[Rfam]
RNA sequence: UGGGCGGUAUCAUUUUUGAACUGCACCUUGCAAUUUAGUAAGCUAUGAAAAUUUUGAAAAUGUUCUGCCUUGAUCUUUAUAAAGACAGGGACGGAGGA
Numbered sequence: 001u002g003g004g005c006g007g008u009a010u011c012a013u014u015u016u017u018g019a020a021c022u023g024c025a026c027c028u029u030g031c032a033a034u035u036u037a038g039u040a041a042g043c044u045a046u047g048a049a050a051a052u053u054u055u056g057a058a059a060a061u062g063u064u065c066u067g068c069c070u071u072g073a074u075c076u077u078u079a080u081a082a083a084g085a086c087a088g089g090g091a092c093g094g095a096g097g098a
Stems, first nucleotide, its partner, number of pairs: 002027002004024005010019002065094003068090005074085003

This 98-nucleotide RNA sequence from Sporosarcina sp. Marseille-Q4063 belongs to the Rfam family "pan motif". The source organism's lineage runs through Bacteria, Bacillota, Bacilli, Caryophanales and Sporosarcina. The family's consensus secondary structure is taken from published work. The family's RNA type in Rfam is cis-regulatory element.